[Rfam]
RNA sequence: AUCGCUUCUUGGCCUUUUGGCUAAGAUCAAGUGUAAUAACUGUCCUUAACAGUUUAAUAUCUGAUAUGUCCUCUAUCCAAGGAGAAUACAUUAAAUGGAUUUUUAGAGCACAGAGUUGGAAUAGGAGCGUCCUCCCUCCACUCCACGCGUUGAACUGGUGUUGCAGUUCCUGUAGGCAUGGUUCACCCCUC
Numbered sequence: 001a002u003c004g005c006u007u008c009u010u011g012g013c014c015u016u017u018u019g020g021c022u023a024a025g026a027u028c029a030a031g032u033g034u035a036a037u038a039a040c041u042g043u044c045c046u047u048a049a050c051a052g053u054u055u056a057a058u059a060u061c062u063g064a065u066a067u068g069u070c071c072u073c074u075a076u077c078c079a080a081g082g083a084g085a086a087u088a089c090a091u092u093a094a095a096u097g098g099a100u101u102u103u104u105a106g107a108g109c110a111c112a113g114a115g116u117u118g119g120a121a122u123a124g125g126a127g128c129g130u131c132c133u134c135c136c137u138c139c140a141c142u143c144c145a146c147g148c149g150u151u152g153a154a155c156u157g158g159u160g161u162u163g164c165a166g167u168u169c170c171u172g173u174a175g176g177c178a179u180g181g182u183u184c185a186c187c188c189c190u191c
Stems, first nucleotide, its partner, number of pairs: 007026003011022004047066002050063003069083004113143004118138002124135004147184001149182004155175003

This 191-nucleotide sequence from Camelus dromedarius belongs to the Rfam family "U2 spliceosomal RNA". From the family's description: U2 is a small nuclear RNA (snRNA) component of the spliceosome (involved in pre-mRNA splicing). Complementary binding between U2 snRNA (in an area lying towards the 5' end but 3' to hairpin I) and the branchpoint sequence (BPS) of the intron results the bulging out of an unpaired adenosine, on the BPS, which initiates a nucleophilic attack at the intronic 5' splice site, thus starting the first of two transesterification reactions that mediate splicing. Rfam classes the family as a spliceosomal small nuclear RNA. Taxonomically the source falls in Camelus (Eukaryota, Gnathostomata, Eutheria, Camelidae).